[Rfam]
RNA sequence: UUUGGGGCUGUAAACAUCCCCGACUGGAAUCUGUUCUCUAUCAUCAGAGCUUUCAGUCAGGUGUUUGCUGCUGCUGG
Numbered sequence: 001u002u003u004g005g006g007g008c009u010g011u012a013a014a015c016a017u018c019c020c021c022g023a024c025u026g027g028a029a030u031c032u033g034u035u036c037u038c039u040a041u042c043a044u045c046a047g048a049g050c051u052u053u054c055a056g057u058c059a060g061g062u063g064u065u066u067g068c069u070g071c072u073g074c075u076g077g
Base pairs, nucleotide, nucleotide: 002076004074006072008070010068011067012066013065014064015063016062017061018060023057024056025055026054027053028052029051031049032048
Source information: Rfam assigns this 77-nucleotide sequence from Oncorhynchus kisutch to the family "mir-30 microRNA precursor family". A reference for the family is Lagos-Quintana et al. (2001), "Identification of novel genes coding for small expressed RNAs", Science. A search with the family's covariance model found it, with a score of 56 bits. This family consists of the mammalian microRNA (miRNA) precursor mir-30a. Animal miRNAs are transcribed as ~70nt precursors and subsequently processed by the Dicer enzyme to give a ~22nt product. In this case the mature sequence comes from both the 3' (miR-30) and 5' (mir-97-6) arms of the precursor. The extents of the hairpin precursors are not generally known and are estimated based on hairpin prediction.